[Rfam]
RNA sequence: AGGGCGGAUGCCGAAAAGCCCGAAAAGAGUAGGCA
Numbered sequence: 001a002g003g004g005c006g007g008a009u010g011c012c013g014a015a016a017a018g019c020c021c022g023a024a025a026a027g028a029g030u031a032g033g034c035a
Stems, first nucleotide, its partner, number of pairs: 002021004010034003

The family of this 35-nucleotide RNA is "DUF805b RNA". The family's consensus secondary structure is taken from published work. Rfam's curators put it in the seed alignment.